[Rfam]
RNA sequence: GGAAUGCGACAGGGGCGCUCGGGAAACCGGGCUGAGACGGACCCUUUGAACCUGAACCGGAUAAUGCCGGCGGAGGGAGGCGCGGAACCACCGGC
Numbered sequence: 001g002g003a004a005u006g007c008g009a010c011a012g013g014g015g016c017g018c019u020c021g022g023g024a025a026a027c028c029g030g031g032c033u034g035a036g037a038c039g040g041a042c043c044c045u046u047u048g049a050a051c052c053u054g055a056a057c058c059g060g061a062u063a064a065u066g067c068c069g070g071c072g073g074a075g076g077g078a079g080g081c082g083c084g085g086a087a088c089c090a091c092c093g094g095c
Stems, first nucleotide, its partner, number of pairs: 006083003010079001011045004016039001017032005051076003057070004

Rfam assigns this 95-nucleotide sequence from Falsirhodobacter algicola to the family "TPP riboswitch aptamer (THI element)". A search with the family's covariance model found it, with a score of 70 bits. For this family Rfam cites "Thiamine-regulated gene expression of Aspergillus oryzae thiA requires splicing of the intron containing a riboswitch-like domain in the 5'-UTR" (Kubodera et al., FEBS Lett, 2003). The family's consensus secondary structure is taken from published work. Taxonomically the source falls in Falsirhodobacter (Bacteria, Pseudomonadati, Alphaproteobacteria, Rhodobacterales). About the family: Vitamin B(1) in its active form thiamin pyrophosphate (TPP) is an essential coenzyme that is synthesised by coupling of pyrimidine and thiazole moieties in bacteria.